[Rfam]
The family of this 88-nucleotide sequence from Olleya namhaensis is "Flavo-1 RNA". The family's consensus secondary structure is taken from published work. The match comes from Rfam's covariance-model search (60 bits). Rfam classes the family as a small RNA.

Nucleotides: 088
Base pairs, nucleotide, nucleotide: 017080018079019078021076022075026071027070031066032065033064037061038060039059040058041057042056043055044054
Number, partner (000 for none) and nucleotide at each position: 001000a002000c003000u004000u005000u006000g007000c008000a009000u010000u011000g012000c013000g014000u015000u016000a017080a018079g019078g020000a021076u022075g023000g024000a025000a026071g027070u028000g029000g030000c031066a032065u033064c034000c035000u036000u037061u038060u039059u040058u041057u042056g043055c044054u045000g046000c047000c048000a049000c050000a051000a052000a053000u054044g055043g056042c057041a058040a059039a060038a061037a062000a063000a064033g065032a066031u067000a068000u069000a070027a071026c072000g073000g074000a075022c076021a077000g078019c079018c080017u081000g082000a083000c084000c085000c086000u087000u088000g